[Rfam]
RNA sequence: ACUAACCUGGAAUGUGCGAUAACCUGUUGUAUUUUGAACCUACAUCUUUUUUCAUGGGAAUCCUAGAUUUUCAUUGUGAUGUCGGGCCUCUAUAGGAGGAUGACAGAACCUUGAGUGCGGUAUCCCACCUAGCUUUGCUAGGAGUCAAAAUCGCAGGACCGGCAUGCUGGGCAAUGU
Numbered sequence: 001a002c003u004a005a006c007c008u009g010g011a012a013u014g015u016g017c018g019a020u021a022a023c024c025u026g027u028u029g030u031a032u033u034u035u036g037a038a039c040c041u042a043c044a045u046c047u048u049u050u051u052u053c054a055u056g057g058g059a060a061u062c063c064u065a066g067a068u069u070u071u072c073a074u075u076g077u078g079a080u081g082u083c084g085g086g087c088c089u090c091u092a093u094a095g096g097a098g099g100a101u102g103a104c105a106g107a108a109c110c111u112u113g114a115g116u117g118c119g120g121u122a123u124c125c126c127a128c129c130u131a132g133c134u135u136u137g138c139u140a141g142g143a144g145u146c147a148a149a150a151u152c153g154c155a156g157g158a159c160c161g162g163c164a165u166g167c168u169g170g171g172c173a174a175u176g177u
Stems, first nucleotide, its partner, number of pairs: 003174001006171005012165004017161002031151007039142002056126003062120002067116001070115004076109001082103002087099004
This 177-nucleotide RNA from Lachnospiraceae bacterium A10 belongs to the Rfam family "6S / SsrS RNA". From the family's description: E. coli 6S RNA was the first non coding RNA to be sequenced, but its function was unknown until recently. It consists of 184 nucleotides that fold into an extended hairpin structure with a large single-stranded internal bulge. The 6S RNA specifically associates with RNA polymerase holoenzyme containing the sigma70 specificity factor. The base pairs follow the family's consensus structure, which is taken from published work. A reference for the family is Chen et al. (2017), "6S RNA Mimics B-Form DNA to Regulate Escherichia coli RNA Polymerase", Molecular Cell.